[Rfam]
RNA sequence: GUUAAGCAUCAAGAACGCUAAUGCGUACCAACCGACAAAAUCGAUGCACGGUGGUUUAGAAUGCGGGAACUCUCCAAAAUAAUCGAGUAUA
Numbered sequence: 001g002u003u004a005a006g007c008a009u010c011a012a013g014a015a016c017g018c019u020a021a022u023g024c025g026u027a028c029c030a031a032c033c034g035a036c037a038a039a040a041u042c043g044a045u046g047c048a049c050g051g052u053g054g055u056u057u058a059g060a061a062u063g064c065g066g067g068a069a070c071u072c073u074c075c076a077a078a079a080u081a082a083u084c085g086a087g088u089a090u091a
Base pairs, nucleotide, nucleotide: 006064007063008062009061015026016025017024018023027055028054029053032051033050034049036046037045041085043083066075067074068073
Dot-bracket structure: .....((((.....((((....))))(((..(((.((...[.[.))..))).))).....)))).(((....))).......].]......
SAM-I/IV (S-adenosyl methionine) riboswitch aptamer: a 91-nucleotide RNA sequence from Formosa sp. Hel3_A1_48.
The family has 417 seed sequences and 567 matches in Rfam 15.1.